[Rfam]
RNA: Small nucleolar RNA R64/Z200 family
RNA sequence: AAACUGCUAUGAUGAUUUUUGAAUAGAAUUCACAUGUCAGACUUCAGAGACUGUAAAGUCUAUGAGAAUGAACAUUCAUAUUCUGAGCAGUAA
Numbered sequence: 001a002a003a004c005u006g007c008u009a010u011g012a013u014g015a016u017u018u019u020u021g022a023a024u025a026g027a028a029u030u031c032a033c034a035u036g037u038c039a040g041a042c043u044u045c046a047g048a049g050a051c052u053g054u055a056a057a058g059u060c061u062a063u064g065a066g067a068a069u070g071a072a073c074a075u076u077c078a079u080a081u082u083c084u085g086a087g088c089a090g091u092a093a
Stems, first nucleotide, its partner, number of pairs: 003091005049060004